RNA: Small nucleolar RNA SNORD42
RNA sequence: GUGCGUAUGAUGGAAAACUUUAUUAAUGCUGAUAAUCUUGAUGUUUCCAAAGGAACCACUGAUGCGC
Numbered sequence: 001g002u003g004c005g006u007a008u009g010a011u012g013g014a015a016a017a018c019u020u021u022a023u024u025a026a027u028g029c030u031g032a033u034a035a036u037c038u039u040g041a042u043g044u045u046u047c048c049a050a051a052g053g054a055a056c057c058a059c060u061g062a063u064g065c066g067c
Stems, first nucleotide, its partner, number of pairs: 001067005